The record is an 83-nucleotide sequence from Oryza meyeriana, which matches "MIR398 microRNA precursor family" in Rfam. Its family is annotated with miRNA-mediated post-transcriptional gene silencing and RISC complex in the Gene Ontology. It scores 58 bits against the family's covariance model. The literature on the family includes a 2004 paper in Mol Cell by Jones-Rhoades and Bartel, "Computational identification of plant microRNAs and their targets, including a stress-induced miRNA". The family has 14 seed sequences and 627 matches in Rfam 15.1.

RNA sequence: GGGCCUCCUCCAGGGGCGAGCUGGGAACACACGGGCAAGGGAAUUUACCUUGUGUGUUCUCAGGUCGCCUCUGCUGGAGCCUC
Numbered sequence: 001g002g003g004c005c006u007c008c009u010c011c012a013g014g015g016g017c018g019a020g021c022u023g024g025g026a027a028c029a030c031a032c033g034g035g036c037a038a039g040g041g042a043a044u045u046u047a048c049c050u051u052g053u054g055u056g057u058u059c060u061c062a063g064g065u066c067g068c069c070u071c072u073g074c075u076g077g078a079g080c081c082u083c
Stems, first nucleotide, its partner, number of pairs: 007077002011073004016068004023061012